[Rfam]
RNA sequence: CAUAGACUGUGUGCUGUCAUUGGGUUCUUCUCUUGCAUAUCUUGGCGAGAUUGGAUUUAAAUUACAACACUAUGUUU
Numbered sequence: 001c002a003u004a005g006a007c008u009g010u011g012u013g014c015u016g017u018c019a020u021u022g023g024g025u026u027c028u029u030c031u032c033u034u035g036c037a038u039a040u041c042u043u044g045g046c047g048a049g050a051u052u053g054g055a056u057u058u059a060a061a062u063u064a065c066a067a068c069a070c071u072a073u074g075u076u077u
Stems, first nucleotide, its partner, number of pairs: 011070003015066002022058006029050004

Shown here is a 77-nucleotide RNA from Protea cynaroides, a member of the family "Small nucleolar RNA snoR97". It is annotated as an H/ACA-box small nucleolar RNA. The literature on the family includes a 2002 paper in Curr Biol by Marker et al., "Experimental RNomics: identification of 140 candidates for small non-messenger RNAs in the plant Arabidopsis thaliana".